[Rfam]
RNA: Small nucleolar RNA snoR77
RNA sequence: AGGCAGCCCCCUUUUCUAGAUAACCAUGGAGAGGGAGGUGUUAAUCUGCUCGGAAAUGAAUCAAAACUUUUGUUCUUCAGAUCUGCUGAGAUUCAUCUUUGAUGCUGAUCUAGUAAAGCUCAAGUACAUU
Numbered sequence: 001a002g003g004c005a006g007c008c009c010c011c012u013u014u015u016c017u018a019g020a021u022a023a024c025c026a027u028g029g030a031g032a033g034g035g036a037g038g039u040g041u042u043a044a045u046c047u048g049c050u051c052g053g054a055a056a057u058g059a060a061u062c063a064a065a066a067c068u069u070u071u072g073u074u075c076u077u078c079a080g081a082u083c084u085g086c087u088g089a090g091a092u093u094c095a096u097c098u099u100u101g102a103u104g105c106u107g108a109u110c111u112a113g114u115a116a117a118g119c120u121c122a123a124g125u126a127c128a129u130u
Stems, first nucleotide, its partner, number of pairs: 002042004007038002009035008067124003072119003079111005085105002090097002